[Rfam]
RNA sequence: UCUUCAUAUCGCUUGCUCUCUCACCGGUCAGAGUGGCGAGAUAGUGGGUGAAAUGAAGAGA
Numbered sequence: 001u002c003u004u005c006a007u008a009u010c011g012c013u014u015g016c017u018c019u020c021u022c023a024c025c026g027g028u029c030a031g032a033g034u035g036g037c038g039a040g041a042u043a044g045u046g047g048g049u050g051a052a053a054u055g056a057a058g059a060g061a
Base pairs, nucleotide, nucleotide: 001059002058003057004056005055006054007053010050012048013047014046015045016044017043019041020040021039022038
RNA: mir-8364 microRNA precursor family
Organism: Pristionchus pacificus